[Rfam]
RNA sequence: AGGACAGUAUCUGCUCCGGCAGAGCUGUACCUUUAGUCUGGAAAUGCAAGCAAUCAACCGCUUGGAGCCGCUUCGGACCGAGACGGAAGG
Numbered sequence: 001a002g003g004a005c006a007g008u009a010u011c012u013g014c015u016c017c018g019g020c021a022g023a024g025c026u027g028u029a030c031c032u033u034u035a036g037u038c039u040g041g042a043a044a045u046g047c048a049a050g051c052a053a054u055c056a057a058c059c060g061c062u063u064g065g066a067g068c069c070g071c072u073u074c075g076g077a078c079c080g081a082g083a084c085g086g087a088a089g090g
Stems, first nucleotide, its partner, number of pairs: 001032003004028005010023004058086003061082005068076002